[Rfam]
RNA: RtT RNA
Organism: Serratia rubidaea
RNA sequence: UUCGUCCGUGGCUUAUAGAGGAUGAAGAACCUCCGAAGGAGGUUUGAGCCGAGCGUAGCGAGACCACGUUGCGCAGCAACGCCCGAAGGGGGCGCAUCUUUGAUGCGCAUAAUCCUCUCUCGCCGACCA
Numbered sequence: 001u002u003c004g005u006c007c008g009u010g011g012c013u014u015a016u017a018g019a020g021g022a023u024g025a026a027g028a029a030c031c032u033c034c035g036a037a038g039g040a041g042g043u044u045u046g047a048g049c050c051g052a053g054c055g056u057a058g059c060g061a062g063a064c065c066a067c068g069u070u071g072c073g074c075a076g077c078a079a080c081g082c083c084c085g086a087a088g089g090g091g092g093c094g095c096a097u098c099u100u101u102g103a104u105g106c107g108c109a110u111a112a113u114c115c116u117c118u119c120u121c122g123c124c125g126a127c128c129a
Stems, first nucleotide, its partner, number of pairs: 015120001017118005023112001034092001043087004050060002067081006